[Rfam]
RNA sequence: UUUUUAAAAAAUCUCCGAGCUUUGGAUUCUGUAACCUUUUUGGUAUGAUCCAAAGCCGCUAGGGUUAGGCUGGAAACGGCUUAGCCUCCCGUGCUUGGAAAGGAGAUAAGUUGGAAAAUUU
Numbered sequence: 001u002u003u004u005u006a007a008a009a010a011a012u013c014u015c016c017g018a019g020c021u022u023u024g025g026a027u028u029c030u031g032u033a034a035c036c037u038u039u040u041u042g043g044u045a046u047g048a049u050c051c052a053a054a055g056c057c058g059c060u061a062g063g064g065u066u067a068g069g070c071u072g073g074a075a076a077c078g079g080c081u082u083a084g085c086c087u088c089c090c091g092u093g094c095u096u097g098g099a100a101a102g103g104a105g106a107u108a109a110g111u112u113g114g115a116a117a118a119u120u121u
Stems, first nucleotide, its partner, number of pairs: 003115002006112001011107006019056007028048002033044001035042001062087011088098002
Molybdenum/Tungsten riboswitch aptamer (Moco RNA motif): a 121-nucleotide sequence from candidate division Zixibacteria bacterium RBG-1. It scores 86 bits against the family's covariance model.